This 90-nucleotide RNA sequence from uncultured bacterium eBACmed86H08 belongs to the Rfam family "SAR11_0636 sRNA".
Nucleotides: 090
Base pairs, nucleotide, nucleotide: 002089003088005086009056010055011054012053013052015048016047023040024039025038027036028035029034058078059077060076061075062074
Number, partner (000 for none) and nucleotide at each position: 001000g002089g003088u004000u005086g006000u007000a008000u009056u010055u011054u012053g013052a014000g015048u016047c017000u018000g019000a020000a021000a022000u023040u024039g025038a026000a027036u028035c029034a030000a031000a032000a033000g034029u035028g036027a037000a038025u039024c040023a041000a042000a043000a044000c045000g046000u047016g048015a049000a050000c051000a052013u053012u054011g055010a056009a057000a058078c059077u060076a061075c062074a063000u064000u065000u066000u067000g068000a069000u070000a071000c072000g073000u074062u075061g076060u077059g078058g079000a080000u081000a082000a083000c084000u085000u086005u087000u088003a089002c090000a
Notes: The base pairs follow the family's consensus structure, which is taken from published work. By type it is a small RNA.